[Rfam]
RNA: Small nucleolar RNA Z247
RNA sequence: AUUAUAGAUGAUGAUGAGAUGGUCCACUUUAUUCUGAAUGGUCUUAACUUUGACUAUAAUCCCUUUGUGUCGUCUAUGCUCGGUCGUGUUGACUUUCUCUCCUUGAGUGACUUGUAUUCUCAGUUACUCACAUAUGAUC
Number, nucleotide and partner (000 for none) at each position: 001a138002u137003u136004a135005u134006a000007g000008a000009u000010g000011a000012u000013g000014a000015u000016g000017a000018g000019a000020u000021g000022g000023u000024c000025c000026a000027c000028u000029u000030u000031a000032u000033u000034c000035u000036g000037a000038a000039u000040g000041g000042u000043c000044u000045u000046a000047a000048c000049u000050u000051u000052g000053a000054c000055u000056a000057u000058a000059a000060u000061c000062c000063c000064u000065u000066u000067g000068u000069g000070u000071c000072g000073u000074c000075u000076a000077u000078g000079c000080u000081c000082g000083g000084u000085c000086g000087u000088g108089u107090u106091g000092a104093c000094u000095u000096u000097c000098u000099c000100u000101c000102c000103u000104u092105g000106a090107g089108u088109g000110a000111c000112u000113u000114g000115u000116a000117u000118u000119c000120u000121c000122a000123g000124u000125u000126a000127c000128u000129c000130a000131c000132a000133u000134a005135u004136g003137a002138u001139c000